Record summary: Rfam assigns this 115-nucleotide RNA sequence from Aureimonas sp. Leaf324 to the family "Alphaproteobacterial ar14". A search with the family's covariance model found it, with a score of 66 bits. Rfam classes the family as a small RNA. Taxonomically the source falls in Aureimonas (Bacteria, Pseudomonadati, Pseudomonadota, Hyphomicrobiales). The literature on the family includes a 2012 paper in RNA Biol by del Val et al., "A survey of sRNA families in alpha-proteobacteria". Rfam links the family to the GO term biological process involved in symbiotic interaction.
[Rfam]
Nucleotides: 115
Base pairs, nucleotide, nucleotide: 007040008039009038011036012035013034014033015032016031045073046072047071048070049069050068052066053065054064082110083109084108085107086106087105088104089103090102091101092100
Number, partner (000 for none) and nucleotide at each position: 001000a002000g003000g004000u005000u006000u007040c008039g009038c010000g011036u012035c013034g014033g015032c016031c017000a018000c019000u020000c021000u022000c023000c024000u025000c026000c027000c028000a029000a030000c031016g032015g033014c034013c035012g036011a037000a038009g039008c040007g041000g042000a043000u044000c045073g046072a047071a048070g049069c050068c051000c052066g053065c054064g055000u056000u057000c058000c059000u060000c061000c062000c063000a064054c065053g066052c067000u068050g069049g070048c071047u072046u073045u074000a075000c076000c077000c078000a079000u080000g081000a082110c083109g084108c085107c086106c087105u088104g089103c090102c091101g092100g093000u094000c095000c096000u097000c098000c099000c100092c101091c102090g103089g104088c105087a106086g107085g108084g109083c110082g111000u112000u113000c114000u115000g